[Rfam]
Saccharopolyspora sRNA 350: a 514-nucleotide RNA from Catellatospora methionotrophica. The family's RNA type in Rfam is antisense RNA. Lineage of the source: Bacteria > Bacillati > Actinomycetes > Micromonosporaceae > Catellatospora.
RNA sequence: UUGACGGUGACGUCCCAGGUGCUGCCGAGCUUGGUCAGCGACUGGUCGCCGAAGUACUCCCCGUCGGCCAGCACGCCGAGCACGAUGCGGUCGCCGUACUUGCCGGUGCCCAGCUUGUUGACCUUGCCGUGUGCGAUGAGGUGCACCUGGUCGGCCGGGCGGCCGGCCUCCACGAUCACGUCGCCGGGGGCGUACUCCGCCUGUGUGAACCGGUCGGCCAGCGCGCCGAGCACCCCGAGGUCCUCGAAGUCGCGCAGCAGCGGCAGCUCGCACAGCUCCGGCGGCACGACCUUGACCUGCGCGCCGACUGUCGUGAAGCUGACUCGGCCGUCCCCGACGGCGUAGCUCAGCCGCCGGUUGACCCGGUAGGUGCCGCCCUUGACCUGGACCCACGGCAGCAUGCGCAGCAGCCACCGGGACGAGAUCUCCUGCAUCUGGGGCGCCGACUUCGUCGUCGUCGCCAGAUUGCGGGCCGCUGCCGUGGCCAGACUCGACCGUGCCUGUCCACUCUCGA
Numbered sequence: 001u002u003g004a005c006g007g008u009g010a011c012g013u014c015c016c017a018g019g020u021g022c023u024g025c026c027g028a029g030c031u032u033g034g035u036c037a038g039c040g041a042c043u044g045g046u047c048g049c050c051g052a053a054g055u056a057c058u059c060c061c062c063g064u065c066g067g068c069c070a071g072c073a074c075g076c077c078g079a080g081c082a083c084g085a086u087g088c089g090g091u092c093g094c095c096g097u098a099c100u101u102g103c104c105g106g107u108g109c110c111c112a113g114c115u116u117g118u119u120g121a122c123c124u125u126g127c128c129g130u131g132u133g134c135g136a137u138g139a140g141g142u143g144c145a146c147c148u149g150g151u152c153g154g155c156c157g158g159g160c161g162g163c164c165g166g167c168c169u170c171c172a173c174g175a176u177c178a179c180g181u182c183g184c185c186g187g188g189g190g191c192g193u194a195c196u197c198c199g200c201c202u203g204u205g206u207g208a209a210c211c212g213g214u215c216g217g218c219c220a221g222c223g224c225g226c227c228g229a230g231c232a233c234c235c236c237g238a239g240g241u242c243c244u245c246g247a248a249g250u251c252g253c254g255c256a257g258c259a260g261c262g263g264c265a266g267c268u269c270g271c272a273c274a275g276c277u278c279c280g281g282c283g284g285c286a287c288g289a290c291c292u293u294g295a296c297c298u299g300c301g302c303g304c305c306g307a308c309u310g311u312c313g314u315g316a317a318g319c320u321g322a323c324u325c326g327g328c329c330g331u332c333c334c335c336g337a338c339g340g341c342g343u344a345g346c347u348c349a350g351c352c353g354c355c356g357g358u359u360g361a362c363c364c365g366g367u368a369g370g371u372g373c374c375g376c377c378c379u380u381g382a383c384c385u386g387g388a389c390c391c392a393c394g395g396c397a398g399c400a401u402g403c404g405c406a407g408c409a410g411c412c413a414c415c416g417g418g419a420c421g422a423g424a425u426c427u428c429c430u431g432c433a434u435c436u437g438g439g440g441c442g443c444c445g446a447c448u449u450c451g452u453c454g455u456c457g458u459c460g461c462c463a464g465a466u467u468g469c470g471g472g473c474c475g476c477u478g479c480c481g482u483g484g485c486c487a488g489a490c491u492c493g494a495c496c497g498u499g500c501c502u503g504u505c506c507a508c509u510c511u512c513g514a
Base pairs, nucleotide, nucleotide: 006390007389008388012384015381018328021325026321027320029319030318032316039313040312041311042306045305047303048302049301052298054233055232057230058229059228062225063224064223066110067109068108075103077102078101079100080099082097083096084095086093117222118221119220120219122217123216127212129210130209131206132205133204134203135202140197143196150191155188156187158185159184160183162177166173236294237293240290241289242288244286245284249282250281251280252279254278256277257276258275260271261270262269329342330341331340332339353377355375356374357373361371362370363369391431392430394428395427397425399423401421403418405416407415437476439474440473443470446467448464449463451461452460477513478512481508482507484505486503487502488501
Dot-bracket structure: .....(((...(..(..(..(....((.((.(......((((..(.(((..(.((.(((..(((.(((......(.((((.(((.(......).))).)))))....)))......((((.((...(.(((((((....(..(......(....((.(((.(...(......)...).....))).))..)....))....)))))..)).)...)).)))))))..))).))..((..(((.((...((((.(.(((.(((......)))...)))))))).).).)))..))...)..))).))....)))..).))))...)..)((((......))))..........(.(((...(((.....))).))).)...)..)...)))((.((.(.(.(.(.(.(.......)).)..).).).)).)).....(.((..(..(.((.((.......)).))..)..)..)).)((..((.(.(((............))).).))...)).